[Rfam]
RNA sequence: GAACGCCACUUAUCACUGAAAAACGCCACGUCCUGUGGCAACAGUGAUAUGACCAACAUCGUGUUGG
Numbered sequence: 001g002a003a004c005g006c007c008a009c010u011u012a013u014c015a016c017u018g019a020a021a022a023a024c025g026c027c028a029c030g031u032c033c034u035g036u037g038g039c040a041a042c043a044g045u046g047a048u049a050u051g052a053c054c055a056a057c058a059u060c061g062u063g064u065u066g067g
Stems, first nucleotide, its partner, number of pairs: 011049007025039005053067005
RNA: Bacillaceae-1 RNA